[Rfam]
The record is an 86-nucleotide RNA from Paenalicyclobacillus mengziensis, which matches "c-di-GMP-I riboswitch aptamer" in Rfam.
Rfam links the family to the GO term cyclic-di-GMP binding.

RNA sequence: UUUGAAUACGGGCAAACUGUGGGAAACCAUAGGACGCAAAGCUACGGGUCUAAAGACGACAUGUCCAUGAUCGCCGGGUUGCUAUA
Numbered sequence: 001u002u003u004g005a006a007u008a009c010g011g012g013c014a015a016a017c018u019g020u021g022g023g024a025a026a027c028c029a030u031a032g033g034a035c036g037c038a039a040a041g042c043u044a045c046g047g048g049u050c051u052a053a054a055g056a057c058g059a060c061a062u063g064u065c066c067a068u069g070a071u072c073g074c075c076g077g078g079u080u081g082c083u084a085u086a
Stems, first nucleotide, its partner, number of pairs: 012037002017032006040080004045076003048071003055065004
Dot-bracket structure: ...........((...((((((....))))))...))..((((.((((((....((((...))))...)))..)))))))......